[Rfam]
RNA sequence: UGAAUAUACCAGCCGAAUUUCGAAUUGAAAACGGGGGAACCAUGUAAUUGGGGUGAAUUUCGCAAAGCAAGUCAGCGAAUAGGGCAGCCUGUGAUAUGCCCGAAUCCGUCAGCUAACCUCGCAGGCUGUGUGCACAGGGACC
Numbered sequence: 001u002g003a004a005u006a007u008a009c010c011a012g013c014c015g016a017a018u019u020u021c022g023a024a025u026u027g028a029a030a031a032c033g034g035g036g037g038a039a040c041c042a043u044g045u046a047a048u049u050g051g052g053g054u055g056a057a058u059u060u061c062g063c064a065a066a067g068c069a070a071g072u073c074a075g076c077g078a079a080u081a082g083g084g085c086a087g088c089c090u091g092u093g094a095u096a097u098g099c100c101c102g103a104a105u106c107c108g109u110c111a112g113c114u115a116a117c118c119u120c121g122c123a124g125g126c127u128g129u130g131u132g133c134a135c136a137g138g139g140a141c142c
Stems, first nucleotide, its partner, number of pairs: 011127004018030003032121005041050002051107003059079004082101004
Notes:
Rfam assigns this 142-nucleotide RNA from Paenibacillus lemnae to the family "c-di-AMP riboswitch aptamer (ydaO/yuaA leader)". The base pairs follow the family's consensus structure. Taxonomically the source falls in Paenibacillus (Bacteria, Bacillati, Bacilli, Caryophanales).